[Rfam]
Nucleotides: 090
Base pairs, nucleotide, nucleotide: 001085002084003083006081007080013074014073015072016071018070019069020068021067026064027063
Number, partner (000 for none) and nucleotide at each position: 001085g002084g003083c004000u005000c006081a007080g008000c009000u010000g011000u012000a013074g014073c015072u016071c017000a018070g019069c020068g021067g022000u023000u024000c025000c026064u027063u028000c029000u030000c031000a032000c033000a034000g035000u036000c037000u038000a039000g040000u041000g042000u043000c044000a045000c046000u047000a048000c049000u050000c051000u052000u053000u054000c055000a056000g057000a058000g059000u060000u061000c062000a063027a064026a065000a066000c067021c068020c069019g070018c071016g072015g073014g074013u075000g076000c077000u078000a079000u080007c081006u082000u083003g084002c085001c086000u087000u088000u089000u090000a
Vault RNA: a 90-nucleotide RNA from Geotrypetes seraphini. About the family: This family of RNAs are found as part of the enigmatic vault ribonucleoprotein complex. The complex consists of a major vault protein (MVP), two minor vault proteins (VPARP and TEP1), and several small untranslated RNA molecules. Rfam classes the family as a non-coding RNA gene. Pairs were carried over by alignment from the consensus structure, which is taken from published work. The organism belongs to Geotrypetes, within Eukaryota.